[Rfam]
RNA sequence: GGUUGCAAGUUUGAGGCUGUAGCAGUAGUGCUCAUGAUGUGGCCCUGCCAGAUUCCAAAGGAUCUGUGAAUUCUGCU
Numbered sequence: 001g002g003u004u005g006c007a008a009g010u011u012u013g014a015g016g017c018u019g020u021a022g023c024a025g026u027a028g029u030g031c032u033c034a035u036g037a038u039g040u041g042g043c044c045c046u047g048c049c050a051g052a053u054u055c056c057a058a059a060g061g062a063u064c065u066g067u068g069a070a071u072u073c074u075g076c077u
Stems, first nucleotide, its partner, number of pairs: 013045001015044004021077005027071001028040003049066007
Mammalian CPEB3 ribozyme: a 77-nucleotide RNA sequence from Alligator mississippiensis. Rfam 15.1 lists 5,706 matches to the family in 197 species. Gene Ontology term of the family: RNA nuclease activity. Lineage of the source: Eukaryota > Chordata > Euteleostomi > Dipnotetrapodomorpha > Alligator. The match comes from Rfam's covariance-model search (42 bits).